Rfam assigns this 332-nucleotide sequence from Urocitellus parryii to the family "ncRNA Repressor of NFAT (nuclear factor of activated T cells)". A search with the family's covariance model found it, with a score of 293 bits. The organism belongs to Urocitellus, within Eukaryota.
RNA sequence: GGGAGCAAAUGGCGUCGGGAACUCUGGAACUUUCCUUUGUAUGUUACAUUAAUCCAUAUAAGAAAAUCUCUUUUAAUGAGGAGUGAUGUAGUUACAAACUCUCCAGAGCCAUAAUUAGAGCAAACUAAUUGAAGCUGUGUUUUGACACACUUUCCAAACUCACGGGCGCCGGCGACACACUCACAACACUGCUGCAGAAUCAUUAGGCUAAUAACACUCGCUCGCAUCCCGUGAAGCUCGCCCUCCCUCAGACGCACCCGCCUGCCCUGUGGUCUCCACUGAAGAUAUUAACUGUGAUCAUGAGCACCUUUGUGGAAUUCUAAUGUUAAGAG
Numbered sequence: 001g002g003g004a005g006c007a008a009a010u011g012g013c014g015u016c017g018g019g020a021a022c023u024c025u026g027g028a029a030c031u032u033u034c035c036u037u038u039g040u041a042u043g044u045u046a047c048a049u050u051a052a053u054c055c056a057u058a059u060a061a062g063a064a065a066a067u068c069u070c071u072u073u074u075a076a077u078g079a080g081g082a083g084u085g086a087u088g089u090a091g092u093u094a095c096a097a098a099c100u101c102u103c104c105a106g107a108g109c110c111a112u113a114a115u116u117a118g119a120g121c122a123a124a125c126u127a128a129u130u131g132a133a134g135c136u137g138u139g140u141u142u143u144g145a146c147a148c149a150c151u152u153u154c155c156a157a158a159c160u161c162a163c164g165g166g167c168g169c170c171g172g173c174g175a176c177a178c179a180c181u182c183a184c185a186a187c188a189c190u191g192c193u194g195c196a197g198a199a200u201c202a203u204u205a206g207g208c209u210a211a212u213a214a215c216a217c218u219c220g221c222u223c224g225c226a227u228c229c230c231g232u233g234a235a236g237c238u239c240g241c242c243c244u245c246c247c248u249c250a251g252a253c254g255c256a257c258c259c260g261c262c263u264g265c266c267c268u269g270u271g272g273u274c275u276c277c278a279c280u281g282a283a284g285a286u287a288u289u290a291a292c293u294g295u296g297a298u299c300a301u302g303a304g305c306a307c308c309u310u311u312g313u314g315g316a317a318u319u320c321u322a323a324u325g326u327u328a329a330g331a332g
Stems, first nucleotide, its partner, number of pairs: 047325005053316005060309001062307001068083006088301002091298005099108003118267001120265003131153004136149005164247003168241002195233002207225002210222001212220001

On this family, see Willingham et al., Science 2005: "A strategy for probing the function of noncoding RNAs finds a repressor of NFAT".